Rfam assigns this 61-nucleotide sequence from Rhinopithecus roxellana to the family "mir-1285 microRNA precursor family". Its family is annotated with miRNA-mediated post-transcriptional gene silencing and RISC complex in the Gene Ontology. NCBI's taxonomy places the organism under Eukaryota, Craniata, Vertebrata, Simiiformes, Rhinopithecus. The base pairs follow the family's consensus structure, which was predicted with RNAalifold. A search with the family's covariance model found it, with a score of 56 bits.
RNA sequence: UGAGUGUAUCACUUAAGCCCAGGAGUUUGAGACCAGCCUGGGCAACAAAGUGAGACUCCAU
Numbered sequence: 001u002g003a004g005u006g007u008a009u010c011a012c013u014u015a016a017g018c019c020c021a022g023g024a025g026u027u028u029g030a031g032a033c034c035a036g037c038c039u040g041g042g043c044a045a046c047a048a049a050g051u052g053a054g055a056c057u058c059c060a061u
Base pairs, nucleotide, nucleotide: 007055009053010052011051012050013049014048017043018042019041020040021039022038023037027036028035029034